RNA: Rhodo-rpoB RNA
RNA sequence: AGAUCGGGAGGCGGCCGGUGGGACGGCAGCCAGGCAUGGAUCGGAUCAACGUCGUCUUUGAUGGGCGCGCGGCCGGAGCCCGACGGCACGCG
Number, nucleotide and partner (000 for none) at each position: 001a000002g042003a041004u040005c039006g000007g000008g000009a000010g031011g030012c029013g000014g027015c026016c025017g024018g000019u000020g000021g000022g000023a000024c017025g016026g015027c014028a000029g012030c011031c010032a000033g000034g000035c000036a000037u000038g000039g005040a004041u003042c002043g000044g000045a000046u000047c000048a000049a000050c000051g000052u000053c000054g000055u000056c000057u000058u000059u000060g000061a000062u000063g000064g000065g000066c000067g000068c092069g091070c090071g000072g087073c086074c085075g084076g000077a000078g000079c000080c000081c000082g000083a000084c075085g074086g073087c072088a000089c000090g070091c069092g068